[Rfam]
RNA sequence: UCACACAUUUAAGCGCCAGAGCUUGAUUUCGCGCGGGGGAGAAGGAGAAGCUGCAGCCACGUUGUUGGCCGCAAGCGGAUCCGGAUCACGGCAAGUUAAGCUGACGAGGUGGAGGUGUUCGGAAUGUUCGGCGGGGACCUCCCGGUGAUGCACCAGAGCCGUAAACGAAAGCGGAAAACGAAAGGGCAACUUUUCGGACAAUACUUUCGUGGGUGCAAUG
Numbered sequence: 001u002c003a004c005a006c007a008u009u010u011a012a013g014c015g016c017c018a019g020a021g022c023u024u025g026a027u028u029u030c031g032c033g034c035g036g037g038g039g040a041g042a043a044g045g046a047g048a049a050g051c052u053g054c055a056g057c058c059a060c061g062u063u064g065u066u067g068g069c070c071g072c073a074a075g076c077g078g079a080u081c082c083g084g085a086u087c088a089c090g091g092c093a094a095g096u097u098a099a100g101c102u103g104a105c106g107a108g109g110u111g112g113a114g115g116u117g118u119u120c121g122g123a124a125u126g127u128u129c130g131g132c133g134g135g136g137a138c139c140u141c142c143c144g145g146u147g148a149u150g151c152a153c154c155a156g157a158g159c160c161g162u163a164a165a166c167g168a169a170a171g172c173g174g175a176a177a178a179c180g181a182a183a184g185g186g187c188a189a190c191u192u193u194u195c196g197g198a199c200a201a202u203a204c205u206u207u208c209g210u211g212g213g214u215g216c217a218a219u220g
Base pairs, nucleotide, nucleotide: 020102021101022100023099024098025097026096027095029093111142112141113140114139115138119131120130121129122128143161144160145159146158147154165210166209167208168207169206170205171204179196180195181194182193183192184191185190